This 123-nucleotide RNA sequence from Gossypium mustelinum belongs to the Rfam family "MIR7504 microRNA precursor family".
RNA sequence: AAUAGUUUUAUGCCACAUCAGCAUUAUCAUCCUAAAUUUCAGCAUUUUAAUUUAGAUUUGAUUUUUUUCAAGAUGGGAAAGCUGAAAUUUAGGAUGAUAAUGCUGAUGUGGCAUAAACCUAUU
Numbered sequence: 001a002a003u004a005g006u007u008u009u010a011u012g013c014c015a016c017a018u019c020a021g022c023a024u025u026a027u028c029a030u031c032c033u034a035a036a037u038u039u040c041a042g043c044a045u046u047u048u049a050a051u052u053u054a055g056a057u058u059u060g061a062u063u064u065u066u067u068u069c070a071a072g073a074u075g076g077g078a079a080a081g082c083u084g085a086a087a088u089u090u091a092g093g094a095u096g097a098u099a100a101u102g103c104u105g106a107u108g109u110g111g112c113a114u115a116a117a118c119c120u121a122u123u
Stems, first nucleotide, its partner, number of pairs: 001123005007117021029095011041083002045079004
Pairs were carried over by alignment from the consensus structure, which was predicted with RNAalifold. Rfam links the family to the GO terms miRNA-mediated post-transcriptional gene silencing and RISC complex.